A member of the RNA family "ffh sRNA" from Kaustia mangrovi, 54 nucleotides long.
By type it is a small RNA.
The base pairs follow the family's consensus structure, which is taken from published work.
The source organism's lineage runs through Bacteria, Pseudomonadota, Alphaproteobacteria, Parvibaculaceae and Kaustia.
The match comes from Rfam's covariance-model search (50 bits).

RNA sequence: GAGGCAGGGGGGUCAACACCCGCCAGCGAGGAUUCGCCCGCGGGUGAUGUUGGC
Numbered sequence: 001g002a003g004g005c006a007g008g009g010g011g012g013u014c015a016a017c018a019c020c021c022g023c024c025a026g027c028g029a030g031g032a033u034u035c036g037c038c039c040g041c042g043g044g045u046g047a048u049g050u051u052g053g054c
Stems, first nucleotide, its partner, number of pairs: 017046007026037004